Source information:
A member of the RNA family "SAM riboswitch aptamer (S box leader)" from Bacillus safensis, 135 nucleotides long.
RNA sequence: CUCUUAUCCCGAGUUGGUGGAGGGACAGGCCCGAUGAAGCCCAGCAACCGGUUUCUUAUGAAAAAGGCAUGAAAAUGCUGAGAAACCAAGGUGCUAACCUGAUGCAAGGUACAAGAACACCUUGAGCGAUAAGAG
Numbered sequence: 001c002u003c004u005u006a007u008c009c010c011g012a013g014u015u016g017g018u019g020g021a022g023g024g025a026c027a028g029g030c031c032c033g034a035u036g037a038a039g040c041c042c043a044g045c046a047a048c049c050g051g052u053u054u055c056u057u058a059u060g061a062a063a064a065a066g067g068c069a070u071g072a073a074a075a076u077g078c079u080g081a082g083a084a085a086c087c088a089a090g091g092u093g094c095u096a097a098c099c100u101g102a103u104g105c106a107a108g109g110u111a112c113a114a115g116a117a118c119a120c121c122u123u124g125a126g127c128g129a130u131a132a133g134a135g
Stems, first nucleotide, its partner, number of pairs: 001135008013042001016041003022032003026104002029100001043095004048091002050087009105124006

Rfam links the family to the GO term regulation of gene expression. Taxonomically the source falls in Bacillus (Bacteria, Bacillati, Bacillota, Bacilli).